The record is a 172-nucleotide sequence from Synergistes jonesii, which matches "Group II catalytic intron D1-D4-3" in Rfam. NCBI's taxonomy places the organism under Bacteria, Synergistota, Synergistia, Synergistales, Synergistes. The literature on the family includes a 2001 paper in Trends Genet by Bonen and Vogel, "The ins and outs of group II introns".

Nucleotides: 172
Stems, first nucleotide, its partner, number of pairs: 003014004027172003036164001040159005046154001047152005063147006074139003080132003083128001084112004090105004
Number, partner (000 for none) and nucleotide at each position: 001000a002000a003014g004013g005012c006011a007000g008000c009000a010000a011006u012005g013004u014003c015000c016000a017000a018000g019000u020000g021000a022000a023000g024000g025000a026000a027172g028171c029170g030000g031000u032000g033000u034000a035000g036164c037000a038000a039000a040159g041158c042157c043156a044155u045000u046154g047152a048151g049150c050149c051148u052000a053000c054000g055000a056000a057000c058000a059000g060000a061000a062000a063147c064146c065145g066144g067143a068142u069000a070000c071000a072000a073000g074139g075138c076137u077000a078000a079000a080132c081131g082130g083128a084112g085111g086110g087109u088000g089000a090105g091104g092103u093102u094000g095000c096000c097000u098000g099000a100000c101000a102093a103092a104091c105090c106000u107000a108000a109087g110086c111085c112084c113000a114000a115000a116000a117000g118000g119000c120000a121000a122000a123000c124000a125000u126000a127000a128083u129000a130082c131081c132080g133000a134000a135000g136000c137076a138075g139074u140000a141000a142068a143067u144066c145065c146064g147063g148051a149050g150049g151048u152047u153000g154046u155044g156043u157042g158041g159040u160000g161000a162000a163000a164036g165000a166000a167000c168000u169000g170029u171028g172027u